[Rfam]
RNA: Small nucleolar RNA SNORA57
RNA sequence: CCUCUAUUUCUUGGCACACGUGUGGUUGUUCAGUACUCACGUGUGCAAUGUACGGAGGGAGAGCAGUGCCGGUGCUAUGUCUUCGGUGCCAGCAUGUUUAUUGUCUGCUGGUUCUAUCCUCAAUCACUGGGACACGC
Number, nucleotide and partner (000 for none) at each position: 001c058002c057003u056004c055005u054006a000007u000008u000009u000010c000011u000012u000013g000014g000015c045016a044017c043018a042019c041020g040021u000022g038023u000024g037025g036026u035027u000028g000029u000030u000031c000032a000033g000034u000035a026036c025037u024038c022039a000040c020041g019042u018043g017044u016045g015046c000047a000048a000049u000050g000051u000052a000053c000054g005055g004056a003057g002058g001059g000060a000061g000062a000063g000064c000065a000066g000067u000068g000069c000070c129071g128072g127073u126074g125075c000076u000077a000078u000079g000080u000081c000082u000083u000084c000085g000086g000087u000088g000089c111090c110091a109092g108093c107094a106095u000096g105097u000098u000099u000100a000101u000102u000103g000104u000105c096106u094107g093108c092109u091110g090111g089112u000113u000114c000115u000116a000117u000118c000119c000120u000121c000122a000123a000124u000125c074126a073127c072128u071129g070130g000131g000132a000133c000134a000135c000136g000137c000